The record is a 305-nucleotide RNA from Caldisphaera lagunensis, which matches "Archaeal signal recognition particle RNA" in Rfam.
The family's RNA type in Rfam is non-coding RNA gene.
The family's consensus secondary structure is taken from published work.
RNA sequence: UGUGCGGGUAGGGUCGAAGGGUUCGCCACCCUUUAAAACCGAAGGCGUAAUGCGGGACCAGUAAUCCCAUCAUGUCAUGCUAUGUAAUGAAUGGUCCCUAUGAUAAGAUGAACUCCGCGCCGUGGAGUUUGCAGUGGUUGAGGGUCUAUCGGAGGAUAGAUACCUACAACCUUAAUCGGGAGAACCUGGCCAGGCCCGGAAGGGAGCAACCUGUGCCCGAAUGCAAACGUUCACGGUUUGCGGAGUAGAUUUAUCGUAGGGGUAAAACCUUCAUUGCAUAGCAUGACAUGAUGGGAAGCCGCACA
Numbered sequence: 001u002g003u004g005c006g007g008g009u010a011g012g013g014u015c016g017a018a019g020g021g022u023u024c025g026c027c028a029c030c031c032u033u034u035a036a037a038a039c040c041g042a043a044g045g046c047g048u049a050a051u052g053c054g055g056g057a058c059c060a061g062u063a064a065u066c067c068c069a070u071c072a073u074g075u076c077a078u079g080c081u082a083u084g085u086a087a088u089g090a091a092u093g094g095u096c097c098c099u100a101u102g103a104u105a106a107g108a109u110g111a112a113c114u115c116c117g118c119g120c121c122g123u124g125g126a127g128u129u130u131g132c133a134g135u136g137g138u139u140g141a142g143g144g145u146c147u148a149u150c151g152g153a154g155g156a157u158a159g160a161u162a163c164c165u166a167c168a169a170c171c172u173u174a175a176u177c178g179g180g181a182g183a184a185c186c187u188g189g190c191c192a193g194g195c196c197c198g199g200a201a202g203g204g205a206g207c208a209a210c211c212u213g214u215g216c217c218c219g220a221a222u223g224c225a226a227a228c229g230u231u232c233a234c235g236g237u238u239u240g241c242g243g244a245g246u247a248g249a250u251u252u253a254u255c256g257u258a259g260g261g262g263u264a265a266a267a268c269c270u271u272c273a274u275u276g277c278a279u280a281g282c283a284u285g286a287c288a289u290g291a292u293g294g295g296a297a298g299c300c301g302c303a304c305a
Stems, first nucleotide, its partner, number of pairs: 001305007009297001012059004016034007039055003065296013079282013093268001094263014109248001112246007119237008127228005133222001134173001136171005141165003144161007176220005182214001186213001188211002195204003
On this family, see Hainzl et al., Nat Struct Mol Biol 2011: "Structural basis of signal-sequence recognition by the signal recognition particle". A search with the family's covariance model found it, with a score of 182 bits.